Background: Rfam assigns this 171-nucleotide RNA from Oceanisphaera arctica to the family "Lysine riboswitch aptamer". For this family Rfam cites "Riboswitches Control Fundamental Biochemical Pathways in Bacillus subtilis and Other Bacteria" (Mandal et al., Cell, 2003). The match comes from Rfam's covariance-model search (76 bits). Riboswitches are metabolite binding domains within certain messenger RNAs that serve as precision sensors for their corresponding targets. Allosteric rearrangement of mRNA structure is mediated by ligand binding, and this results in modulation of gene expression.

[Rfam]
RNA sequence: CGGGCGAGAAGAGGCGCGUUAUUCAGGCAGCCGGCAGGAGGAGCUCCCACUCCCAGGAUCGCCGGUCAGGGGAGAUAACGCCGAGAGGGUGAUACGGGGCAGUGCAUCAUCCUCGGCCACGAGGGCUGAAUCCUUCGGGUUGUCACCUGUGGGUGGCGUGCUUCUAAGUGA
Numbered sequence: 001c002g003g004g005c006g007a008g009a010a011g012a013g014g015c016g017c018g019u020u021a022u023u024c025a026g027g028c029a030g031c032c033g034g035c036a037g038g039a040g041g042a043g044c045u046c047c048c049a050c051u052c053c054c055a056g057g058a059u060c061g062c063c064g065g066u067c068a069g070g071g072g073a074g075a076u077a078a079c080g081c082c083g084a085g086a087g088g089g090u091g092a093u094a095c096g097g098g099g100c101a102g103u104g105c106a107u108c109a110u111c112c113u114c115g116g117c118c119a120c121g122a123g124g125g126c127u128g129a130a131u132c133c134u135u136c137g138g139g140u141u142g143u144c145a146c147c148u149g150u151g152g153g154u155g156g157c158g159u160g161c162u163u164c165u166a167a168g169u170g171a
Base pairs, nucleotide, nucleotide: 007165008164009163010162011161016081017080018079019078020077021076022075023074030066031065032064033063034062035061037059085114086113087112088111089110090109091108092107093106095104096103115141116140117139118138120137121136122135123134124133125132143156144155145154146153147152